[Rfam]
RNA sequence: CCUUAACAUCAAGAGCCGGGCGAAUGCCCGCACCAACCUGCUCACUCGGCAAGGUGGUUUCCAAAAUGGGAUGUGGCCAAUGGGCAAAAAUGAGUAUUACC
Numbered sequence: 001c002c003u004u005a006a007c008a009u010c011a012a013g014a015g016c017c018g019g020g021c022g023a024a025u026g027c028c029c030g031c032a033c034c035a036a037c038c039u040g041c042u043c044a045c046u047c048g049g050c051a052a053g054g055u056g057g058u059u060u061c062c063a064a065a066a067u068g069g070g071a072u073g074u075g076g077c078c079a080a081u082g083g084g085c086a087a088a089a090a091u092g093a094g095u096a097u098u099a100c101c
Stems, first nucleotide, its partner, number of pairs: 006074005015031001017030005032058003037054003040050003044097001047094001076085003

A member of the RNA family "SAM-I/IV (S-adenosyl methionine) riboswitch aptamer" from Marivivens sp. JLT3646, 101 nucleotides long. For this family Rfam cites "The aptamer core of SAM-IV riboswitches mimics the ligand-binding site of SAM-I riboswitches" (Weinberg et al., RNA, 2008). Pairs were carried over by alignment from the consensus structure, which is taken from published work. Lineage of the source: Bacteria > Pseudomonadati > Alphaproteobacteria > Paracoccaceae > Marivivens. Its family is annotated with regulation of gene expression and S-adenosylmethionine metabolic process in the Gene Ontology. It scores 70 bits against the family's covariance model.